[Rfam]
The record is a 60-nucleotide sequence from Aeromicrobium camelliae, which matches "Actino-pnp RNA" in Rfam. By type it is a cis-regulatory element. Pairs were carried over by alignment from the consensus structure, which is taken from published work. Taxonomically the source falls in Aeromicrobium (Bacteria, Bacillati, Propionibacteriales, Nocardioidaceae). The match comes from Rfam's covariance-model search (66 bits).

RNA sequence: CUCGGUCCUCGGUAGUGGCUUUCGGAUCAUGGGAUCCGCGAGCCUCGAUCGAAGACCGGC
Numbered sequence: 001c002u003c004g005g006u007c008c009u010c011g012g013u014a015g016u017g018g019c020u021u022u023c024g025g026a027u028c029a030u031g032g033g034a035u036c037c038g039c040g041a042g043c044c045u046c047g048a049u050c051g052a053a054g055a056c057c058g059g060c
Stems, first nucleotide, its partner, number of pairs: 002059006009052005017044005023038006